Source information:
Pseudomonas sRNA P1: a 181-nucleotide sequence from Pseudomonas sp. HLS-6. The source organism's lineage runs through Bacteria, Pseudomonadota, Pseudomonadales, Pseudomonadaceae and Pseudomonas. This small RNA (sRNA) was computationally identified in the genome of the opportunistic pathogen Pseudomonas aeruginosa and its expression verified by northern blot analysis. Rfam classes the family as a non-coding RNA gene.
RNA sequence: ACCCCCGGUAUUAUUGCUGUUAUGGGUUACGUUCGAGCUUAGCCUUGUUCAUUUUUUUACACAACACCCCCGUAAAAAAUAGAACACGGCCUGCUCAGCAUCACCCAUGUUUACCCGAUGGACGGGCUAUCGGCGCCCUCAAUUGCAGCAAAAGUGCCGCUGAGGCGCCGUUUUAGGGCAU
Numbered sequence: 001a002c003c004c005c006c007g008g009u010a011u012u013a014u015u016g017c018u019g020u021u022a023u024g025g026g027u028u029a030c031g032u033u034c035g036a037g038c039u040u041a042g043c044c045u046u047g048u049u050c051a052u053u054u055u056u057u058u059a060c061a062c063a064a065c066a067c068c069c070c071c072g073u074a075a076a077a078a079a080u081a082g083a084a085c086a087c088g089g090c091c092u093g094c095u096c097a098g099c100a101u102c103a104c105c106c107a108u109g110u111u112u113a114c115c116c117g118a119u120g121g122a123c124g125g126g127c128u129a130u131c132g133g134c135g136c137c138c139u140c141a142a143u144u145g146c147a148g149c150a151a152a153a154g155u156g157c158c159g160c161u162g163a164g165g166c167g168c169c170g171u172u173u174u175a176g177g178g179c180a181u
Base pairs, nucleotide, nucleotide: 024106025105026104027103029101035094037092042090043089044088045086047085048084049083053079054078055077056076057075058074059073060072163181165179166178168176